[Rfam]
RNA sequence: ACGGUCCUGCCGGGAGAGAGCGGGACGGUCCGCCGCCGAAGGAGCAGUCGCGCGCCCCGCGAUCUCUCAGGCAAAAGGACCGGCCGGGCCGC
Numbered sequence: 001a002c003g004g005u006c007c008u009g010c011c012g013g014g015a016g017a018g019a020g021c022g023g024g025a026c027g028g029u030c031c032g033c034c035g036c037c038g039a040a041g042g043a044g045c046a047g048u049c050g051c052g053c054g055c056c057c058c059g060c061g062a063u064c065u066c067u068c069a070g071g072c073a074a075a076a077g078g079a080c081c082g083g084c085c086g087g088g089c090c091g092c
Base pairs, nucleotide, nucleotide: 006087007086009084010083011082012081013080020033021032022031023030035072036071037070038068039067042066043065044064049059050058